[Rfam]
RNA sequence: UUCGUCUCACGUAACUGGCGAAAAACCGGAACCAUGUUCCGGCACAAGAUGGGUAUCCAUCGGGAAGCGUGAGAUUUCAUUAGCCGUGCGCCUGGGCAGCCCUG
Numbered sequence: 001u002u003c004g005u006c007u008c009a010c011g012u013a014a015c016u017g018g019c020g021a022a023a024a025a026c027c028g029g030a031a032c033c034a035u036g037u038u039c040c041g042g043c044a045c046a047a048g049a050u051g052g053g054u055a056u057c058c059a060u061c062g063g064g065a066a067g068c069g070u071g072a073g074a075u076u077u078c079a080u081u082a083g084c085c086g087u088g089c090g091c092c093u094g095g096g097c098a099g100c101c102c103u104g
Stems, first nucleotide, its partner, number of pairs: 004075009015064002017092004049060004081099001083097003